Source information: Shown here is a 62-nucleotide RNA sequence from Dictyostelium purpureum, a member of the family "Class I RNA from Dictyostelium". Pairs were carried over by alignment from the consensus structure, which is taken from published work. The sequence is in the family's curated seed alignment. The literature on the family includes a 2011 paper in Genome Biol by Sucgang et al., "Comparative genomics of the social amoebae Dictyostelium discoideum and Dictyostelium purpureum". The family's RNA type in Rfam is non-coding RNA gene. From the family's description: Dictyostelium Class I RNA was first reported for Aspegren et al. 2004 in Dictyostelium discoideum.
RNA sequence: GAAUUCCUUACAGCAACACAUACAUAAUCUAAAAUCAUAUUUUUAAGAAACUUUGGAUUCUG
Numbered sequence: 001g002a003a004u005u006c007c008u009u010a011c012a013g014c015a016a017c018a019c020a021u022a023c024a025u026a027a028u029c030u031a032a033a034a035u036c037a038u039a040u041u042u043u044u045a046a047g048a049a050a051c052u053u054u055g056g057a058u059u060c061u062g
Stems, first nucleotide, its partner, number of pairs: 001060006